The record is a 175-nucleotide RNA from Pelagirhabdus alkalitolerans, which matches "Lysine riboswitch aptamer" in Rfam. Rfam links the family to the GO term lysine biosynthetic process. NCBI's taxonomy places the organism under Bacteria, Bacillati, Bacilli, Bacillaceae, Pelagirhabdus. The family's consensus secondary structure is taken from published work. Riboswitches are metabolite binding domains within certain messenger RNAs that serve as precision sensors for their corresponding targets.
[Rfam]
RNA sequence: CGAUGAGAUAGAGGCGCAAUGAAAAAUGAGUAUCGCACUGGAGCUGCAAGCAAAGAAGGUGUGUGAAAGGUUUAGUUGCCGAAGUGAGUAAUGAAAAGCAAUUCUAUUACUUGCUGGUGUAUAGUUGAAUAAAUUAUAUACUGUCAUGUCUUUUACGUGAUGAGCUGUUGAUCGA
Number, nucleotide and partner (000 for none) at each position: 001c000002g000003a000004u000005g000006a000007g169008a168009u167010a166011g165012a000013g000014g000015c000016g079017c078018a077019a076020u075021g000022a073023a072024a071025a000026a000027u000028g000029a000030g000031u000032a000033u000034c063035g062036c061037a060038c059039u058040g000041g000042a000043g000044c000045u000046g000047c000048a000049a000050g000051c000052a000053a000054a000055g000056a000057a000058g039059g038060u037061g036062u035063g034064u000065g000066a000067a000068a000069g000070g000071u024072u023073u022074a000075g020076u019077u018078g017079c016080c000081g000082a000083a115084g114085u113086g112087a111088g110089u109090a108091a107092u106093g105094a000095a000096a000097a000098g000099c000100a000101a000102u000103u000104c000105u093106a092107u091108u090109a089110c088111u087112u086113g085114c084115u083116g142117g141118u140119g139120u138121a137122u136123a135124g134125u133126u132127g000128a000129a000130u000131a000132a126133a125134u124135u123136a122137u121138a120139u119140a118141c117142u116143g000144u160145c159146a158147u157148g156149u000150c000151u000152u000153u000154u000155a000156c148157g147158u146159g145160a144161u000162g000163a000164g000165c011166u010167g009168u008169u007170g000171a000172u000173c000174g000175a000